[Rfam]
RNA sequence: AGCAUUUGUAUUGCCUGUUCGCUUUUGGAAAUGAGUGAAUGUGGUGUCAAGAAAGGCAAACAGGGAAUACUUUGCAGCCUUUUCUGGCCCUUAGGUUUGGUAUCUUCCGUGCAGGAACUGUACAAGUAACAGUU
Number, nucleotide and partner (000 for none) at each position: 001a000002g057003c056004a000005u054006u053007u052008g000009u049010a000011u000012u046013g045014c044015c043016u041017g040018u039019u038020c037021g036022c035023u034024u000025u000026u000027g000028g000029a000030a000031a000032u000033g000034a023035g022036u021037g020038a019039a018040u017041g016042u000043g015044g014045u013046g012047u000048c000049a009050a000051g000052a007053a006054a005055g000056g003057c002058a000059a000060a000061c000062a000063g000064g000065g000066a000067a000068u000069a127070c126071u125072u124073u122074g121075c120076a119077g118078c000079c000080u000081u000082u000083u116084c115085u114086g000087g112088c111089c109090c000091u000092u000093a000094g103095g000096u000097u000098u000099g000100g000101u000102a000103u094104c000105u000106u000107c000108c000109g089110u000111g088112c087113a000114g085115g084116a083117a000118c077119u076120g075121u074122a073123c000124a072125a071126g070127u069128a000129a000130c000131a000132g000133u000134u000

A member of the RNA family "Small nucleolar RNA SNORA13" from Oryctolagus cuniculus, 134 nucleotides long. The sequence is in the family's curated seed alignment. Its Rfam clan is "SNORA13 clan". Rfam classes the family as an H/ACA-box small nucleolar RNA. Rfam links the family to the GO terms nucleolus and RNA processing. The source organism's lineage runs through Eukaryota, Euteleostomi, Theria, Lagomorpha and Oryctolagus. Rfam describes the family as follows. ACA13 is a member of the H/ACA class of snoRNA that guide the sites of modification of uridines to pseudouridines. Rfam 15.1 lists 1,034 matches to the family in 605 species.